[Rfam]
RNA sequence: UUGGUUUAAAUCAUUCUGGGCCUACACUUUGAAAAUUGAGUUCACACAAAGUGGUGAGAUACACAUUGAUUUCAUCCAA
Numbered sequence: 001u002u003g004g005u006u007u008a009a010a011u012c013a014u015u016c017u018g019g020g021c022c023u024a025c026a027c028u029u030u031g032a033a034a035a036u037u038g039a040g041u042u043c044a045c046a047c048a049a050a051g052u053g054g055u056g057a058g059a060u061a062c063a064c065a066u067u068g069a070u071u072u073c074a075u076c077c078a079a
Stems, first nucleotide, its partner, number of pairs: 001079004006074001008072006015065001017063002023056002025053007